[Rfam]
RNA sequence: GGUUCUGCGGUCUGUGGUUGAAAAUCGAUGCCAGUCGCAGGCAAAACGAUCCACGUAAGCCGGGGAAACUUCCGGUGAGCAUGGUGCGGCUUAGAAGUCAGUCCGUCCGGGCAAACAGCCCGAGAGAAGCAGUAGUGGGGGGAGAAUAUCCUAGGAGCGAACCUUCCAGGCGGCGGGUGUGGGGGCAAAGACCAGGUCAGCGCGGAGCU
Numbered sequence: 001g002g003u004u005c006u007g008c009g010g011u012c013u014g015u016g017g018u019u020g021a022a023a024a025u026c027g028a029u030g031c032c033a034g035u036c037g038c039a040g041g042c043a044a045a046a047c048g049a050u051c052c053a054c055g056u057a058a059g060c061c062g063g064g065g066a067a068a069c070u071u072c073c074g075g076u077g078a079g080c081a082u083g084g085u086g087c088g089g090c091u092u093a094g095a096a097g098u099c100a101g102u103c104c105g106u107c108c109g110g111g112c113a114a115a116c117a118g119c120c121c122g123a124g125a126g127a128a129g130c131a132g133u134a135g136u137g138g139g140g141g142g143a144g145a146a147u148a149u150c151c152u153a154g155g156a157g158c159g160a161a162c163c164u165u166c167c168a169g170g171c172g173g174c175g176g177g178u179g180u181g182g183g184g185g186c187a188a189a190g191a192c193c194a195g196g197u198c199a200g201c202g203c204g205g206a207g208c209u
Stems, first nucleotide, its partner, number of pairs: 001209009012200003015194005028180003031041001033091007050084002058076001060074001062072003082187001103173005108122005126166004135158002141151003
RNA: raiA RNA
Organism: Guopingia tenuis